Shown here is an 82-nucleotide RNA sequence from Paenibacillus sp. NEAU-GSW1, a member of the family "ZMP/ZTP riboswitch aptamer (pfl RNA motif)".
Taxonomically the source falls in Paenibacillus (Bacteria, Bacillota, Bacilli, Paenibacillaceae).
RNA sequence: UUUAGUGUAUGUGACUGGCGUAAAUGUGGAACAAACCACAAGGGAGCAUACAUUCAUAACGCCGUACGCCUGGGCAGAGGUA
Numbered sequence: 001u002u003u004a005g006u007g008u009a010u011g012u013g014a015c016u017g018g019c020g021u022a023a024a025u026g027u028g029g030a031a032c033a034a035a036c037c038a039c040a041a042g043g044g045a046g047c048a049u050a051c052a053u054u055c056a057u058a059a060c061g062c063c064g065u066a067c068g069c070c071u072g073g074g075c076a077g078a079g080g081u082a
Stems, first nucleotide, its partner, number of pairs: 004054009015043002017070005026039004061075003